[Rfam]
Rfam assigns this 104-nucleotide sequence from Kalanchoe fedtschenkoi to the family "Small nucleolar RNA Z122". Gene Ontology terms of the family: RNA processing and nucleolus. A search with the family's covariance model found it, with a score of 49 bits. NCBI's taxonomy places the organism under Eukaryota, Embryophyta, Magnoliopsida, Mesangiospermae, Kalanchoe. Rfam classes the family as a C/D-box small nucleolar RNA.
RNA sequence: CGGGGUGAAAUGAUGACAAAAAUAUCAGUGGAAUCUGAUUGGCAACAGAUUUGUAUCUGAUGCCGUGCUGAAUCGUAAUAUUUGCACGUCAGUCUGAUCCCCCG
Numbered sequence: 001c002g003g004g005g006u007g008a009a010a011u012g013a014u015g016a017c018a019a020a021a022a023u024a025u026c027a028g029u030g031g032a033a034u035c036u037g038a039u040u041g042g043c044a045a046c047a048g049a050u051u052u053g054u055a056u057c058u059g060a061u062g063c064c065g066u067g068c069u070g071a072a073u074c075g076u077a078a079u080a081u082u083u084g085c086a087c088g089u090c091a092g093u094c095u096g097a098u099c100c101c102c103c104g
Base pairs, nucleotide, nucleotide: 001104002103003102004101005100007099008098